The record is a 73-nucleotide sequence, which matches "DUF3800-IX RNA" in Rfam.
It is annotated as a small RNA.
Actinobacteria, Firmicutes (1 example), Nitrospirae, Proteobacteria, Verrucomicrobia (1 example).
[Rfam]
RNA sequence: AAUAGUCCCUCGAAUAGUCACCCGCUGGUGCGCGUUUCUUUACAUAACGUAAUGAAUAGAGGGACUGUAAUUU
Numbered sequence: 001a002a003u004a005g006u007c008c009c010u011c012g013a014a015u016a017g018u019c020a021c022c023c024g025c026u027g028g029u030g031c032g033c034g035u036u037u038c039u040u041u042a043c044a045u046a047a048c049g050u051a052a053u054g055a056a057u058a059g060a061g062g063g064a065c066u067g068u069a070a071u072u073u
Base pairs, nucleotide, nucleotide: 002068003067004066005065006064007063008062009061010060011059017033018032019030020029021028022027036056037055038054040052041051042050